This 81-nucleotide sequence from Apostasia shenzhenica belongs to the Rfam family "Small nucleolar RNA J33". By type it is a C/D-box small nucleolar RNA. The pairing is the family consensus, mapped onto this sequence. A search with the family's covariance model found it, with a score of 92 bits.

RNA sequence: CUGUAAGGGGAAUGAUGUAUUACUACAAGGCUCUAAAGAUGCUUACUUUUCUUGAUUCUGCUUCUGAGAUGGAUAUUAGGG
Numbered sequence: 001c002u003g004u005a006a007g008g009g010g011a012a013u014g015a016u017g018u019a020u021u022a023c024u025a026c027a028a029g030g031c032u033c034u035a036a037a038g039a040u041g042c043u044u045a046c047u048u049u050u051c052u053u054g055a056u057u058c059u060g061c062u063u064c065u066g067a068g069a070u071g072g073a074u075a076u077u078a079g080g081g
Stems, first nucleotide, its partner, number of pairs: 001081002004078003
Dot-bracket structure: ((.(((.....................................................................))).))